[Rfam]
RNA: DUF805b RNA
RNA sequence: AAGGAGGUUACUGAAAAUCCUUGAAUAAUAGAGUAGGAA
Numbered sequence: 001a002a003g004g005a006g007g008u009u010a011c012u013g014a015a016a017a018u019c020c021u022u023g024a025a026u027a028a029u030a031g032a033g034u035a036g037g038a039a
Stems, first nucleotide, its partner, number of pairs: 002021004011037002